Rfam assigns this 428-nucleotide part of an RNA from Araneus ventricosus to the family "Eukaryotic large subunit ribosomal RNA".
RNA sequence: CGACCUCAGAUCAGACGAGAUGACCCGCUGAAUUUAAGCAUAUAAAUAAGCGGAGGAAAAGAAACCAACAGGGAUUCCCUGAGUAACGGCGAGCGAAAAGGGAAGAGCCCAGCGCCGAAGCCCGCUCUCGAGAGGGAGCCGGGCAAUGUGGCGUUUAGGAGUGAGCGUGCCGGCGGUUGACUCUGCAGCAAGUCCCCCUGACCGGGGCUGUAACCCAGAGUGGGUGCGAGGCCCAUAGCUGCUAGGUCUCCGUCGAAUGCGAUCUCCUUGGAGUCGGGUUGCUUGGGAGUGCAGCCCUAAUCGGGUGGUAAACUCCACCUAAGGCUAAAUACGGCCGUGAGACCGAUAGCAAACAAGUACCGUGAGGGAAAGUUGCAAAGAACUUUGAAGAGAGAGUUCAAGAGUACGUGAAACUGCUCAGAGGCAAA
Numbered sequence: 001c002g003a004c005c006u007c008a009g010a011u012c013a014g015a016c017g018a019g020a021u022g023a024c025c026c027g028c029u030g031a032a033u034u035u036a037a038g039c040a041u042a043u044a045a046a047u048a049a050g051c052g053g054a055g056g057a058a059a060a061g062a063a064a065c066c067a068a069c070a071g072g073g074a075u076u077c078c079c080u081g082a083g084u085a086a087c088g089g090c091g092a093g094c095g096a097a098a099a100g101g102g103a104a105g106a107g108c109c110c111a112g113c114g115c116c117g118a119a120g121c122c123c124g125c126u127c128u129c130g131a132g133a134g135g136g137a138g139c140c141g142g143g144c145a146a147u148g149u150g151g152c153g154u155u156u157a158g159g160a161g162u163g164a165g166c167g168u169g170c171c172g173g174c175g176g177u178u179g180a181c182u183c184u185g186c187a188g189c190a191a192g193u194c195c196c197c198c199u200g201a202c203c204g205g206g207g208c209u210g211u212a213a214c215c216c217a218g219a220g221u222g223g224g225u226g227c228g229a230g231g232c233c234c235a236u237a238g239c240u241g242c243u244a245g246g247u248c249u250c251c252g253u254c255g256a257a258u259g260c261g262a263u264c265u266c267c268u269u270g271g272a273g274u275c276g277g278g279u280u281g282c283u284u285g286g287g288a289g290u291g292c293a294g295c296c297c298u299a300a301u302c303g304g305g306u307g308g309u310a311a312a313c314u315c316c317a318c319c320u321a322a323g324g325c326u327a328a329a330u331a332c333g334g335c336c337g338u339g340a341g342a343c344c345g346a347u348a349g350c351a352a353a354c355a356a357g358u359a360c361c362g363u364g365a366g367g368g369a370a371a372g373u374u375g376c377a378a379a380g381a382a383c384u385u386u387g388a389a390g391a392g393a394g395a396g397u398u399c400a401a402g403a404g405u406a407c408g409u410g411a412a413a414c415u416g417c418u419c420a421g422a423g424g425c426a427a428a
Base pairs, nucleotide, nucleotide: 024055025053026052027051028050029049035042036041065072066071076103077102078101079100080099087093106326107325108324109323113153114152115151116150117149119147120144121143122142123141124139125138126137127136128135158267159266161263162262165260166259167258168257176251179248180247182245185242186241187240188239192208194207195206196205197204216220223233224232276297277296278295279294280293281292282291303320304319305318306317307316360367361366383394384393385392386391